[Rfam]
RNA sequence: GUACUCCCUCCGUCCCAUAAUAUAAAAACGUUUUUGAUACUAAUAUAGUUAAAAAUGUUUUUAUAUUAUGGGACGGAGGGAGUAU
Numbered sequence: 001g002u003a004c005u006c007c008c009u010c011c012g013u014c015c016c017a018u019a020a021u022a023u024a025a026a027a028a029c030g031u032u033u034u035u036g037a038u039a040c041u042a043a044u045a046u047a048g049u050u051a052a053a054a055a056u057g058u059u060u061u062u063a064u065a066u067u068a069u070g071g072g073a074c075g076g077a078g079g080g081a082g083u084a085u
Base pairs, nucleotide, nucleotide: 003083004082005081007079008078009077010076011075013073014072015071016070017069019067020066021065022064023063024062025061026060027059028058029057030056031055032054033053034052035051036050039049040048041047